[Rfam]
RNA sequence: UUGCGCAAGUGCUAUUUAUCUGAGCAAUCUUCGCAAUCCUCUGUCGCAACCCGUCCGGUAUCUUUAUCACCAGAAUCACUGCCCGGACAUCAGUCCACGGCGACGCGCCCUAGGCGGGCGGUCGCGGCCAGCCAUCCAACAGGAUCUGCAGGCCCCCGGGCUACACACCCUCCAGAAGACGGUGUGAGGUGAGCCGGCGCCACAAGUGCCGAGCACGGACGACAAUUCCUGAAGGGAGGCCCUGUGGCCUCCCU
Numbered sequence: 001u002u003g004c005g006c007a008a009g010u011g012c013u014a015u016u017u018a019u020c021u022g023a024g025c026a027a028u029c030u031u032c033g034c035a036a037u038c039c040u041c042u043g044u045c046g047c048a049a050c051c052c053g054u055c056c057g058g059u060a061u062c063u064u065u066a067u068c069a070c071c072a073g074a075a076u077c078a079c080u081g082c083c084c085g086g087a088c089a090u091c092a093g094u095c096c097a098c099g100g101c102g103a104c105g106c107g108c109c110c111u112a113g114g115c116g117g118g119c120g121g122u123c124g125c126g127g128c129c130a131g132c133c134a135u136c137c138a139a140c141a142g143g144a145u146c147u148g149c150a151g152g153c154c155c156c157c158g159g160g161c162u163a164c165a166c167a168c169c170c171u172c173c174a175g176a177a178g179a180c181g182g183u184g185u186g187a188g189g190u191g192a193g194c195c196g197g198c199g200c201c202a203c204a205a206g207u208g209c210c211g212a213g214c215a216c217g218g219a220c221g222a223c224a225a226u227u228c229c230u231g232a233a234g235g236g237a238g239g240c241c242c243u244g245u246g247g248c249c250u251c252c253c254u
Stems, first nucleotide, its partner, number of pairs: 002011003045057002076192005081161004085096004100125005108117002126154004134145004164186003168182002171179002193214002195211006232254001234252002238249004

Overview: A member of the RNA family "Pseudomonas sRNA P24" from Pseudomonas putida, 254 nucleotides long. By type it is a non-coding RNA gene. This small RNA (sRNA) was computationally identified in the genome of the opportunistic pathogen Pseudomonas aeruginosa and its expression verified by Northern blot analysis. The family's consensus secondary structure was predicted with RNAalifold.